[Rfam]
RNA sequence: UAUCGGGGAGAGAAUCGGGCUAGGCUCAGGUUUUUUUUUUCAAAAAAAGGAAAAAUUACGUUUUUACGUUUAGUCAGUCUUUUUCUCUCUCCUAUA
Numbered sequence: 001u002a003u004c005g006g007g008g009a010g011a012g013a014a015u016c017g018g019g020c021u022a023g024g025c026u027c028a029g030g031u032u033u034u035u036u037u038u039u040u041c042a043a044a045a046a047a048a049g050g051a052a053a054a055a056u057u058a059c060g061u062u063u064u065u066a067c068g069u070u071u072a073g074u075c076a077g078u079c080u081u082u083u084u085c086u087c088u089c090u091c092c093u094a095u096a
Base pairs, nucleotide, nucleotide: 001096002095003094005092006091007090008089010087011086012085013084017080018079019078020077021076024074025073026072028070

Record summary:
This 96-nucleotide RNA sequence from Rhodnius prolixus belongs to the Rfam family "mir-14 microRNA precursor family". For this family Rfam cites "Identification of microRNAs expressed in two mosquito vectors, Aedes albopictus and Culex quinquefasciatus" (Skalsky et al., BMC Genomics, 2010). The base pairs follow the family's consensus structure, which was predicted with RNAalifold. The organism belongs to Rhodnius, within Eukaryota. Gene Ontology terms of the family: miRNA-mediated post-transcriptional gene silencing and RISC complex.